[Rfam]
RNA sequence: GGUGUGUUCCGGGGUCGGUGGGAUUCCGAACCGGCGGUGAAAGUCCGCGACCCUCGCAUCCGCGAGGUUGAGCCGGUGUAAUUCCGGCACCGACGGUGAUGUGUGGGGUUUUGGCCCGCGCACAAGUCCGGAUAGGAGGAACGCGGG
Numbered sequence: 001g002g003u004g005u006g007u008u009c010c011g012g013g014g015u016c017g018g019u020g021g022g023a024u025u026c027c028g029a030a031c032c033g034g035c036g037g038u039g040a041a042a043g044u045c046c047g048c049g050a051c052c053c054u055c056g057c058a059u060c061c062g063c064g065a066g067g068u069u070g071a072g073c074c075g076g077u078g079u080a081a082u083u084c085c086g087g088c089a090c091c092g093a094c095g096g097u098g099a100u101g102u103g104u105g106g107g108g109u110u111u112u113g114g115c116c117c118g119c120g121c122a123c124a125a126g127u128c129c130g131g132a133u134a135g136g137a138g139g140a141a142c143g144c145g146g147g
Base pairs, nucleotide, nucleotide: 003145004144005143006142007141008140009139010138016028017027018026032092033091034048035047036046037045043090044089052067053066072088073087074086075085076084094130095129096128
Dot-bracket structure: ..((((((((.....(((.......)))...((((((.....[[))))...((............))....(((((.......)))))]])).(((...............................))).......))))))))..
A member of the RNA family "FMN riboswitch aptamer (RFN element)" from Leucobacter komagatae, 147 nucleotides long. Rfam links the family to the GO term FMN binding. The family's consensus secondary structure is taken from published work. It scores 80 bits against the family's covariance model.